A member of the RNA family "Group II catalytic intron D1-D4-2" from Nitrincola tibetensis, 117 nucleotides long. From the family's description: Group II introns are found in rRNA, tRNA and mRNA of organelles in fungi, plants and protists, and also in mRNA in bacteria. Lineage of the source: Bacteria > Pseudomonadati > Gammaproteobacteria > Oceanospirillaceae > Nitrincola. On this family, see Bonen and Vogel, Trends Genet 2001: "The ins and outs of group II introns".
RNA sequence: GAGGGUAGGCCCCUCGAAGUCCCUUUACAGGAGGAGGCUUCAAACCAGCUUAAGCUGCGAUGGUAAAGAGCCAUGAUGGUGAGCGUUAAGGAAAAGGCAAAGCUUGCUUUGUCAGGU
Numbered sequence: 001g002a003g004g005g006u007a008g009g010c011c012c013c014u015c016g017a018a019g020u021c022c023c024u025u026u027a028c029a030g031g032a033g034g035a036g037g038c039u040u041c042a043a044a045c046c047a048g049c050u051u052a053a054g055c056u057g058c059g060a061u062g063g064u065a066a067a068g069a070g071c072c073a074u075g076a077u078g079g080u081g082a083g084c085g086u087u088a089a090g091g092a093a094a095a096g097g098c099a100a101a102g103c104u105u106g107c108u109u110u111g112u113c114a115g116g117u
Base pairs, nucleotide, nucleotide: 001015002014003013004012005011016041017040018039019038020037021036023034024033025032026031046116049090050089051088052087053086054080055079057077061073062072063071064070096113097112098111099110100109101108